The record is a 107-nucleotide RNA sequence from Prunus persica, which matches "MIR6274 microRNA precursor family" in Rfam.
Rfam 15.1 lists 342 matches to the family in 8 species.
Taxonomically the source falls in Prunus (Eukaryota, Streptophytina, Tracheophyta, Euphyllophyta).
[Rfam]
RNA sequence: GGAUAGCGGUGUUUUGCUAUCCCCAGCUAAUUAUACAAUGACAUGUAGAAAAAUUAUCCUACGUGUCAUUGCAUUAUUGAUCGGGAAUAGCAAAAUAAGAGUUUUUU
Numbered sequence: 001g002g003a004u005a006g007c008g009g010u011g012u013u014u015u016g017c018u019a020u021c022c023c024c025a026g027c028u029a030a031u032u033a034u035a036c037a038a039u040g041a042c043a044u045g046u047a048g049a050a051a052a053a054u055u056a057u058c059c060u061a062c063g064u065g066u067c068a069u070u071g072c073a074u075u076a077u078u079g080a081u082c083g084g085g086a087a088u089a090g091c092a093a094a095a096u097a098a099g100a101g102u103u104u105u106u107u
Base pairs, nucleotide, nucleotide: 002106003105005103012095013094014093015092016091017090018089019088020087022085023084024083026081028079029078030077031076033074034073036071037070038069039068040067041066042065043064044063045062046061047060048059050057
Dot-bracket structure: .((.(......(((((((((.(((.(.((((.((.(((((((((((((.(......).))))))))))))).)).)))).).))).))))))))).......).)).